[Rfam]
RNA sequence: UGCAGUGUGAGGAGCAGUUCGAGUAAAGAGCUUCCGGAGUCGAAACACGGUCAGACGCCCGGAAGCUUUUUAUU
Numbered sequence: 001u002g003c004a005g006u007g008u009g010a011g012g013a014g015c016a017g018u019u020c021g022a023g024u025a026a027a028g029a030g031c032u033u034c035c036g037g038a039g040u041c042g043a044a045a046c047a048c049g050g051u052c053a054g055a056c057g058c059c060c061g062g063a064a065g066c067u068u069u070u071u072a073u074u
Stems, first nucleotide, its partner, number of pairs: 027069005034062004039056003